[Rfam]
RNA: mir-67 microRNA precursor family
RNA sequence: UCUGUGUGUCCCUGUUCAUCGUGGUUGUGAUGUCCUCUUUGAAUCAUCACAACCUGCAUGAAUGAGGACAGGCUCG
Numbered sequence: 001u002c003u004g005u006g007u008g009u010c011c012c013u014g015u016u017c018a019u020c021g022u023g024g025u026u027g028u029g030a031u032g033u034c035c036u037c038u039u040u041g042a043a044u045c046a047u048c049a050c051a052a053c054c055u056g057c058a059u060g061a062a063u064g065a066g067g068a069c070a071g072g073c074u075c076g
Base pairs, nucleotide, nucleotide: 009067011066013064014063015062016061017060018059019058023054024053026051027050028049029048030047031046032045
Dot-bracket structure: ........(.(.(((((((...((.(((((((............))))))).))...))))))).)).........